[Rfam]
RNA sequence: GGAAGCGAACGGGGCCCGGUGGCCCUCCCGGUCUUCAAAAUCGGUUGCUUCCCGCGUUGAGCGGGAGGGCUGGGUUCGACUCCCAGGCGCUUCC
Number, nucleotide and partner (000 for none) at each position: 001g094002g093003a092004a091005g090006c089007g088008a000009a000010c000011g026012g025013g024014g023015c022016c021017c000018g000019g000020u000021g016022g015023c014024c013025c012026u011027c000028c044029c043030g042031g041032u040033c000034u000035u000036c000037a000038a000039a000040a032041u031042c030043g029044g028045u000046u000047g000048c068049u067050u066051c065052c064053c000054g000055c000056g000057u000058u000059g000060a000061g000062c000063g000064g052065g051066a050067g049068g048069g000070c000071u085072g084073g083074g082075u000076u000077c000078g000079a000080c000081u000082c074083c073084c072085a071086g000087g000088c007089g006090c005091u004092u003093c002094c001
Record summary:
The record is a 94-nucleotide sequence from an Acidobacteriota bacterium, which matches "Selenocysteine transfer RNA" in Rfam. Pairs were carried over by alignment from the consensus structure, which is taken from published work. The organism belongs to Acidobacteriota, within Bacteria.